[Rfam]
RNA sequence: GUAAUGUUUCUUGCUCAAAUGAGUAUUCCAGCCAUACUUGCAGGUCGCAUAUGCAAAAACAUACACACCACUCUCUUUCUCUAUUUUCAUUUUGGCGAUAUUGCAGCUGUUGCUUCUGAGAUGCUCAUUUGAGAAAGUAAUGUUAC
Numbered sequence: 001g002u003a004a005u006g007u008u009u010c011u012u013g014c015u016c017a018a019a020u021g022a023g024u025a026u027u028c029c030a031g032c033c034a035u036a037c038u039u040g041c042a043g044g045u046c047g048c049a050u051a052u053g054c055a056a057a058a059a060c061a062u063a064c065a066c067a068c069c070a071c072u073c074u075c076u077u078u079c080u081c082u083a084u085u086u087u088c089a090u091u092u093u094g095g096c097g098a099u100a101u102u103g104c105a106g107c108u109g110u111u112g113c114u115u116c117u118g119a120g121a122u123g124c125u126c127a128u129u130u131g132a133g134a135a136a137g138u139a140a141u142g143u144u145a146c
Base pairs, nucleotide, nucleotide: 004143005142006141007140008139010137011136012135014133015132016131017130018129019128020127021126022125023124024123025122026121027120029118030117